Y RNA: a 99-nucleotide RNA from Microcebus murinus. From the family's description: Y RNAs are components of the Ro ribonucleoprotein particle (Ro RNP), in association with Ro60 and La proteins. The Y RNAs and Ro60 and La proteins are well conserved, but the function of the Ro RNP is not known. In humans the RNA component can be one of four small RNAs -- hY1, hY3, hY4 and hY5. The source organism's lineage runs through Eukaryota, Craniata, Gnathostomata, Strepsirrhini and Microcebus.
RNA sequence: GGCUGGUCUGAUUAUAGUGGGUUAUCGGAACUUAUUAACACUAGUGUCACUAAAACUAAAGUUGGUAUAUGACCCCCCACUGCUAAAUUUGACUGUGAA
Numbered sequence: 001g002g003c004u005g006g007u008c009u010g011a012u013u014a015u016a017g018u019g020g021g022u023u024a025u026c027g028g029a030a031c032u033u034a035u036u037a038a039c040a041c042u043a044g045u046g047u048c049a050c051u052a053a054a055a056c057u058a059a060a061g062u063u064g065g066u067a068u069a070u071g072a073c074c075c076c077c078c079a080c081u082g083c084u085a086a087a088u089u090u091g092a093c094u095g096u097g098a099a
Stems, first nucleotide, its partner, number of pairs: 004095005010090002015085001016081006033067003037063002
Dot-bracket structure: ...(((((.((...(((((((...........(((.((.......................)).)))........))))))...)...)))))))....